[Rfam]
RNA sequence: ACCUCCUGUUUCUGCUCCACUUCACUGAUUACACCUAUAGGUUGAUGGAUUCUGAGUAUGGAGAAUAUUAAGCUAUUUGCUUUUGAGUCCUCGCUUCUUACCUCAUUCAAAUAGGGGACUCACUUGCCGAUGGAUCAUGUAUGUAGUCACAAAAGACUAGUUACUCCUUUUUGAGUGAUUAGAUUGUGGCGAUAUUCUACAUUC
Numbered sequence: 001a002c003c004u005c006c007u008g009u010u011u012c013u014g015c016u017c018c019a020c021u022u023c024a025c026u027g028a029u030u031a032c033a034c035c036u037a038u039a040g041g042u043u044g045a046u047g048g049a050u051u052c053u054g055a056g057u058a059u060g061g062a063g064a065a066u067a068u069u070a071a072g073c074u075a076u077u078u079g080c081u082u083u084u085g086a087g088u089c090c091u092c093g094c095u096u097c098u099u100a101c102c103u104c105a106u107u108c109a110a111a112u113a114g115g116g117g118a119c120u121c122a123c124u125u126g127c128c129g130a131u132g133g134a135u136c137a138u139g140u141a142u143g144u145a146g147u148c149a150c151a152a153a154a155g156a157c158u159a160g161u162u163a164c165u166c167c168u169u170u171u172u173g174a175g176u177g178a179u180u181a182g183a184u185u186g187u188g189g190c191g192a193u194a195u196u197c198u199a200c201a202u203u204c
Base pairs, nucleotide, nucleotide: 003063004062005061006060016049017048018047019046020044023041025040026039073133074132075131076130077129079127080126084122085121086120087119088118089117090116091115092114139197141195142194146190147189148188149187157182158181159180160179161178165174166173